[Rfam]
RNA: Selenocysteine transfer RNA
Organism: Lachnospiraceae bacterium TWA4
RNA sequence: GGGGGUAGCUAGGUGCUGGUGUACCUCUCGGUCUUCAAAACCGCUGUGAGGGGUUAAGAGCCUCUCGGGUGAGUUCGAUUCUCACGUAUCCCC
Numbered sequence: 001g002g003g004g005g006u007a008g009c010u011a012g013g014u015g016c017u018g019g020u021g022u023a024c025c026u027c028u029c030g031g032u033c034u035u036c037a038a039a040a041c042c043g044c045u046g047u048g049a050g051g052g053g054u055u056a057a058g059a060g061c062c063u064c065u066c067g068g069g070u071g072a073g074u075u076c077g078a079u080u081c082u083c084a085c086g087u088a089u090c091c092c093c
Base pairs, nucleotide, nucleotide: 001093002092003091004090005089006088007087008085011026012025013024014023015022016021029043030042031041032040047067048066049065050064051063070084071083072082073081